[Rfam]
The family of this 97-nucleotide sequence from Streptomyces beijiangensis is "Streptomyces RNA 4115". On this family, see Vockenhuber et al., RNA Biol 2011: "Deep sequencing-based identification of small non-coding RNAs in Streptomyces coelicolor". A search with the family's covariance model found it, with a score of 92 bits. NCBI's taxonomy places the organism under Bacteria, Actinomycetota, Actinomycetes, Streptomycetaceae, Streptomyces. Pairs were carried over by alignment from the consensus structure. Identified by deep sequencing of transcriptome at the end of exponential growth phase.
RNA sequence: GCGUGGGUCGGCCCACUGCACUGGAUCCAGUGGGCUGGGGGACGCCGUCGCCUACAUCCCCGCGGGCGGCGGGCCGGUCCGGGAGGCGAACAGCGCC
Numbered sequence: 001g002c003g004u005g006g007g008u009c010g011g012c013c014c015a016c017u018g019c020a021c022u023g024g025a026u027c028c029a030g031u032g033g034g035c036u037g038g039g040g041g042a043c044g045c046c047g048u049c050g051c052c053u054a055c056a057u058c059c060c061c062g063c064g065g066g067c068g069g070c071g072g073g074c075c076g077g078u079c080c081g082g083g084a085g086g087c088g089a090a091c092a093g094c095g096c097c
Stems, first nucleotide, its partner, number of pairs: 006075003009037010038043001045072009055062001085097004
Dot-bracket structure: .....(((((((((((((.........))))))))))(....).(((((((((.(......).)))))))))))).........((((.....))))